Rfam assigns this 87-nucleotide RNA from Paenibacillus curdlanolyticus to the family "c-di-GMP-I riboswitch aptamer". It scores 71 bits against the family's covariance model.
[Rfam]
RNA sequence: UUAAAUACUUGGCAAAGCUAUAGAAAUAUAGUGACGCAAAGCUAUGGGUCUUCGCACAUUUUAGUGAAAGAUCGCCAGGUUGCCCAU
Numbered sequence: 001u002u003a004a005a006u007a008c009u010u011g012g013c014a015a016a017g018c019u020a021u022a023g024a025a026a027u028a029u030a031g032u033g034a035c036g037c038a039a040a041g042c043u044a045u046g047g048g049u050c051u052u053c054g055c056a057c058a059u060u061u062u063a064g065u066g067a068a069a070g071a072u073c074g075c076c077a078g079g080u081u082g083c084c085c086a087u
Stems, first nucleotide, its partner, number of pairs: 012037002017032006040081004045077003048072003055066003